[Rfam]
RNA sequence: GACCUAAACUGCAAAGGAAUUUGUGGCAUGGUCAAAAACGCAGGACGAUAAAGAUCCCAUCAUCAGGAUCGCGUCCUGCGUCGUACGGGGAAACUCGUACGGACCCGCAAGGGUC
Numbered sequence: 001g002a003c004c005u006a007a008a009c010u011g012c013a014a015a016g017g018a019a020u021u022u023g024u025g026g027c028a029u030g031g032u033c034a035a036a037a038a039c040g041c042a043g044g045a046c047g048a049u050a051a052a053g054a055u056c057c058c059a060u061c062a063u064c065a066g067g068a069u070c071g072c073g074u075c076c077u078g079c080g081u082c083g084u085a086c087g088g089g090g091a092a093a094c095u096c097g098u099a100c101g102g103a104c105c106c107g108c109a110a111g112g113g114u115c
Stems, first nucleotide, its partner, number of pairs: 001033004009026007039080009053070005082101008102115005